[Rfam]
Rfam assigns this 88-nucleotide RNA from Citrus sinensis to the family "Small nucleolar RNA Z102/R77". Rfam classes the family as a C/D-box small nucleolar RNA. Rfam links the family to the GO terms nucleolus and RNA processing. Its Rfam clan is "SNORD44 clan". For this family Rfam cites "The high diversity of snoRNAs in plants: identification and comparative study of 120 snoRNA genes from Oryza sativa" (Chen et al., Nucleic Acids Res, 2003).
RNA sequence: GAAUGAGAUGAUGAUGGAUAUGAUUCCCUAUUGGUUUGAUCGCCGAGAUGAUGGCAUCGACCUUUGUAUUAGCUCUAUCUGAUCAUUC
Numbered sequence: 001g002a003a004u005g006a007g008a009u010g011a012u013g014a015u016g017g018a019u020a021u022g023a024u025u026c027c028c029u030a031u032u033g034g035u036u037u038g039a040u041c042g043c044c045g046a047g048a049u050g051a052u053g054g055c056a057u058c059g060a061c062c063u064u065u066g067u068a069u070u071a072g073c074u075c076u077a078u079c080u081g082a083u084c085a086u087u088c
Base pairs, nucleotide, nucleotide: 002087003086004085005084038058042055043054044053